[Rfam]
The record is a 374-nucleotide RNA sequence from Chitinophaga flava, which matches "transfer-messenger RNA" in Rfam.
On this family, see Mao et al., RNA Biol 2010: "Variations on the tmRNA gene".
The source organism's lineage runs through Bacteria, Pseudomonadati, Bacteroidota, Chitinophagia and Chitinophaga.
Bacterial tmRNA, also known as 10Sa RNA or SsrA, is named for its dual tRNA and mRNA-like properties. Its role is to liberate the mRNA from a stalled ribosome. To accomplish this part of the tmRNA is used as a reading frame that ends in a translation stop signal. The broken mRNA is replaced in the ribosome by the tmRNA and translation of the tmRNA leads to addition of a proteolysis tag to the incomplete protein enabling recognition by a protease. Recently a number of permuted tmRNA genes have been found encoded in two parts. tmRNAs have been identified in eubacteria and some chloroplasts but are absent from archaeal and eukaryote nuclear genomes.
Rfam classes the family as a non-coding RNA gene.
The family's consensus secondary structure is taken from published work.
The family is grouped with related families in Rfam's "tRNA clan".
RNA sequence: GGGGAUGCCUGGUUUUGACAGCAUAGGUCUUUGAAAGUGUAAGCAUGCCGUGCGUUGGAUAAUUAGCACGUUAAUCUGAAUAUUCAAACUUUAUAUGGCGAAUCUAACUACGCCAUGGCUGCCUAAUCAGAGAUUAGACACCCAUUAUAGCCGCCUGGAGUUGUCGCCUUAUGCGACUCCCGCCGCUGAAUCAUCAAACCCAUAGGGAUAGGUGCUCAUGGUUUCUGUGAGUGAGCGCUGAAGCUAAACGGAUAAGAACGAGGUUGGUUCGUUAUGCCCCUGCUGAGUUCCGACAAACCAAUGCAUAAAUAAGCAUGUAGAAAGCUUUCGGCGAAUAUGUUUGGACGCGGGUUCGAUUCCCGCCAUCUCCACAA
Numbered sequence: 001g002g003g004g005a006u007g008c009c010u011g012g013u014u015u016u017g018a019c020a021g022c023a024u025a026g027g028u029c030u031u032u033g034a035a036a037g038u039g040u041a042a043g044c045a046u047g048c049c050g051u052g053c054g055u056u057g058g059a060u061a062a063u064u065a066g067c068a069c070g071u072u073a074a075u076c077u078g079a080a081u082a083u084u085c086a087a088a089c090u091u092u093a094u095a096u097g098g099c100g101a102a103u104c105u106a107a108c109u110a111c112g113c114c115a116u117g118g119c120u121g122c123c124u125a126a127u128c129a130g131a132g133a134u135u136a137g138a139c140a141c142c143c144a145u146u147a148u149a150g151c152c153g154c155c156u157g158g159a160g161u162u163g164u165c166g167c168c169u170u171a172u173g174c175g176a177c178u179c180c181c182g183c184c185g186c187u188g189a190a191u192c193a194u195c196a197a198a199c200c201c202a203u204a205g206g207g208a209u210a211g212g213u214g215c216u217c218a219u220g221g222u223u224u225c226u227g228u229g230a231g232u233g234a235g236c237g238c239u240g241a242a243g244c245u246a247a248a249c250g251g252a253u254a255a256g257a258a259c260g261a262g263g264u265u266g267g268u269u270c271g272u273u274a275u276g277c278c279c280c281u282g283c284u285g286a287g288u289u290c291c292g293a294c295a296a297a298c299c300a301a302u303g304c305a306u307a308a309a310u311a312a313g314c315a316u317g318u319a320g321a322a323a324g325c326u327u328u329c330g331g332c333g334a335a336u337a338u339g340u341u342u343g344g345a346c347g348c349g350g351g352u353u354c355g356a357u358u359c360c361c362g363c364c365a366u367c368u369c370c371a372c373a374a
Stems, first nucleotide, its partner, number of pairs: 001370007019343002021340005031331006039325002044317005049070005057085005115145004120140002148188003155182001157180002160177004167207006212238007221253004226248001256290004262284003266280002272309002347363005